[Rfam]
RNA sequence: GGCGAUGAUUAUAUACUGCAAUUAUCCUCGAGUUCCAUGGCGGUAGCUGCAUACCAUUUGGUAUGUUGUCGUGGCUCUGUGAUGUUCAUAGCAGGGGUAAUGAGCCGCC
Numbered sequence: 001g002g003c004g005a006u007g008a009u010u011a012u013a014u015a016c017u018g019c020a021a022u023u024a025u026c027c028u029c030g031a032g033u034u035c036c037a038u039g040g041c042g043g044u045a046g047c048u049g050c051a052u053a054c055c056a057u058u059u060g061g062u063a064u065g066u067u068g069u070c071g072u073g074g075c076u077c078u079g080u081g082a083u084g085u086u087c088a089u090a091g092c093a094g095g096g097g098u099a100a101u102g103a104g105c106c107g108c109c
Stems, first nucleotide, its partner, number of pairs: 001029002004026002008022003043109001046105003052099004057095004063089003067084007
Rfam assigns this 109-nucleotide sequence from Aspergillus wentii to the family "A. fumigatus sRNA Afu_203". The family's consensus secondary structure was predicted with WAR. The literature on the family includes a 2008 paper in Nucleic Acids Res by Jochl et al., "Small ncRNA transcriptome analysis from Aspergillus fumigatus suggests a novel mechanism for regulation of protein synthesis".